[Rfam]
The record is a 138-nucleotide RNA from Coleofasciculus chthonoplastes, which matches "c-di-AMP riboswitch aptamer (ydaO/yuaA leader)" in Rfam.
RNA sequence: UCUGUUUCAGUGACAAGGUGAAGCUGGAGCGGGGGAACCAACUUUUGGGGCAUAUCUCACACUCGAAACCCGAGUCGAGAGGGACAACUCUCAGUCCUAGCCCGUCAGCUAACUCCGUAGGCAUUGGGAGGAGACUGA
Numbered sequence: 001u002c003u004g005u006u007u008c009a010g011u012g013a014c015a016a017g018g019u020g021a022a023g024c025u026g027g028a029g030c031g032g033g034g035g036a037a038c039c040a041a042c043u044u045u046u047g048g049g050g051c052a053u054a055u056c057u058c059a060c061a062c063u064c065g066a067a068a069c070c071c072g073a074g075u076c077g078a079g080a081g082g083g084a085c086a087a088c089u090c091u092c093a094g095u096c097c098u099a100g101c102c103c104g105u106c107a108g109c110u111a112a113c114u115c116c117g118u119a120g121g122c123a124u125u126g127g128g129a130g131g132a133g134a135c136u137g138a
Stems, first nucleotide, its partner, number of pairs: 001028003029118006039047002048103003056079003082097004
A search with the family's covariance model found it, with a score of 60 bits.